[Rfam]
RNA sequence: CCGUGGGGCAGGGCUUAGCCCACCUGUGAACAGAGUUGGCGUCGUGUUCACAGUGGCUAAGUUCCGCCCCCCCC
Numbered sequence: 001c002c003g004u005g006g007g008g009c010a011g012g013g014c015u016u017a018g019c020c021c022a023c024c025u026g027u028g029a030a031c032a033g034a035g036u037u038g039g040c041g042u043c044g045u046g047u048u049c050a051c052a053g054u055g056g057c058u059a060a061g062u063u064c065c066g067c068c069c070c071c072c073c074c
Base pairs, nucleotide, nucleotide: 011064012063013062014061015060016059017058018057019056020055026051027050028049029048030047031046032045